[Rfam]
RNA sequence: UCCGCCGCGAGGCGGAAUCCGAAGGAAGCUGGAGGCAAAAGCACGGCUCGAGGUACACGAAUCCAAUUUGAGGCGGUUGCAGUCGGAUGAGUCACCACACCAUGACGAAAUCCUAAGCUGCCAAAGGCUGCAGCCGUAAACUUGGGCGAGCGCGGGCGGAAAGAUGACGUU
Dot-bracket structure: ((((((....))))))...........(.((....(....((.(((((((...........((((((.....(((.(((((((.((((..((((........))))...)))).............))))))).)))..).)))))))))).)).)).....)....)).)
Numbered sequence: 001u002c003c004g005c006c007g008c009g010a011g012g013c014g015g016a017a018u019c020c021g022a023a024g025g026a027a028g029c030u031g032g033a034g035g036c037a038a039a040a041g042c043a044c045g046g047c048u049c050g051a052g053g054u055a056c057a058c059g060a061a062u063c064c065a066a067u068u069u070g071a072g073g074c075g076g077u078u079g080c081a082g083u084c085g086g087a088u089g090a091g092u093c094a095c096c097a098c099a100c101c102a103u104g105a106c107g108a109a110a111u112c113c114u115a116a117g118c119u120g121c122c123a124a125a126g127g128c129u130g131c132a133g134c135c136g137u138a139a140a141c142u143u144g145g146g147c148g149a150g151c152g153c154g155g156g157c158g159g160a161a162a163g164a165u166g167a168c169g170u171u
Stems, first nucleotide, its partner, number of pairs: 001016006028171001030169002036163001041157002044154002046151005062146005067140001073137003077133007085113004091106004
Shown here is a 171-nucleotide RNA from Cohnella fermenti, a member of the family "Group II catalytic intron D1-D4-3". Rfam links the family to the GO term Group II intron splicing. It scores 125 bits against the family's covariance model.